[Rfam]
RNA sequence: CGGUUUAAUUGUGUUUAGGGAAUUCGGCAAAAUGGCCCCGUAACUUUGGAAGAAGGGGUGCCUGCCCGGUGAUCGGGCAGGUCGCAGUGACCAGGGGGCUCCGACUGUCUAAUAACAACAUAGCAGACUGCAACUCCGUAAGGACUAGUAUAGUCUGUGAUUCCUGCCCAGUGCAGGUAUCUGAAAACCGGGUUCAACCGGACGAAGGACCUGUAAACGGCGGGGGUAACUAUGACCCUCUUAAGGUAGCGUAGUACCUUGUCGCUUAAUUGGCGACUUGCAUGAAUGGAUUAACGAGAGCCCUACUGUCCCAAACACAAGUCCGUUGAACAUUUUAUCCUGGUGCAAAGGCCAGUGA
Numbered sequence: 001c002g003g004u005u006u007a008a009u010u011g012u013g014u015u016u017a018g019g020g021a022a023u024u025c026g027g028c029a030a031a032a033u034g035g036c037c038c039c040g041u042a043a044c045u046u047u048g049g050a051a052g053a054a055g056g057g058g059u060g061c062c063u064g065c066c067c068g069g070u071g072a073u074c075g076g077g078c079a080g081g082u083c084g085c086a087g088u089g090a091c092c093a094g095g096g097g098g099c100u101c102c103g104a105c106u107g108u109c110u111a112a113u114a115a116c117a118a119c120a121u122a123g124c125a126g127a128c129u130g131c132a133a134c135u136c137c138g139u140a141a142g143g144a145c146u147a148g149u150a151u152a153g154u155c156u157g158u159g160a161u162u163c164c165u166g167c168c169c170a171g172u173g174c175a176g177g178u179a180u181c182u183g184a185a186a187a188c189c190g191g192g193u194u195c196a197a198c199c200g201g202a203c204g205a206a207g208g209a210c211c212u213g214u215a216a217a218c219g220g221c222g223g224g225g226g227u228a229a230c231u232a233u234g235a236c237c238c239u240c241u242u243a244a245g246g247u248a249g250c251g252u253a254g255u256a257c258c259u260u261g262u263c264g265c266u267u268a269a270u271u272g273g274c275g276a277c278u279u280g281c282a283u284g285a286a287u288g289g290a291u292u293a294a295c296g297a298g299a300g301c302c303c304u305a306c307u308g309u310c311c312c313a314a315a316c317a318c319a320a321g322u323c324c325g326u327u328g329a330a331c332a333u334u335u336u337a338u339c340c341u342g343g344u345g346c347a348a349a350g351g352c353c354a355g356u357g358a
Base pairs, nucleotide, nucleotide: 001325002324003323009320010319011318012317013316014315015314016313018311019310020309035059036058037057038056039055044049060082061081062080063079064078065077066076067075068074083087095304096303097302098301099300100299101298102296103295106120107119108118123158124157125156126155127154128153129152130151131148135144136143137142162290163289164288166221167220168219171218172217173214174213175212176211177210180209181208182207188201189200190199191198222240223239224238225237226236227235241245261277262276263275264274265273266272340355341354342353343352
Background:
The family of this 358-nucleotide part of an RNA from Methanogenium marinum is "Archaeal large subunit ribosomal RNA". The family is grouped with related families in Rfam's "LSU clan". NCBI's taxonomy places the organism under Archaea, Methanobacteriota, Methanomicrobia, Methanomicrobiaceae, Methanogenium. The family's consensus secondary structure is taken from published work. The literature on the family includes a 2001 paper in Science by Yusupov et al., "Crystal structure of the ribosome at 5.5 A resolution". Gene Ontology terms of the family: structural constituent of ribosome and ribosome. It scores 2902 bits against the family's covariance model.